RT-15 RNA: a 183-nucleotide RNA sequence from Paraburkholderia sediminicola.

RNA sequence: AAACGCCCGUCUCAUGGAGGUUCACGCCGCCAUGACUGAGCACCGUUUCAAUCUGGUCGUGCCGCUGGCCCACAAGGCCACCGCCAUGCGCAAUGAGGAUACCGACCACCGGCGUGUGAAUCGGUCCGGCGCAGUUUCCCAGCUGAGCAAUCGGCCGGGCGACGUAGAUAGCACGAUGGUCCA
Numbered sequence: 001a002a003a004c005g006c007c008c009g010u011c012u013c014a015u016g017g018a019g020g021u022u023c024a025c026g027c028c029g030c031c032a033u034g035a036c037u038g039a040g041c042a043c044c045g046u047u048u049c050a051a052u053c054u055g056g057u058c059g060u061g062c063c064g065c066u067g068g069c070c071c072a073c074a075a076g077g078c079c080a081c082c083g084c085c086a087u088g089c090g091c092a093a094u095g096a097g098g099a100u101a102c103c104g105a106c107c108a109c110c111g112g113c114g115u116g117u118g119a120a121u122c123g124g125u126c127c128g129g130c131g132c133a134g135u136u137u138c139c140c141a142g143c144u145g146a147g148c149a150a151u152c153g154g155c156c157g158g159g160c161g162a163c164g165u166a167g168a169u170a171g172c173a174c175g176a177u178g179g180u181c182c183a
Stems, first nucleotide, its partner, number of pairs: 005041002012035006019028003057176006063083002066080005087133005097127003102124002107118003135162002138159003142155005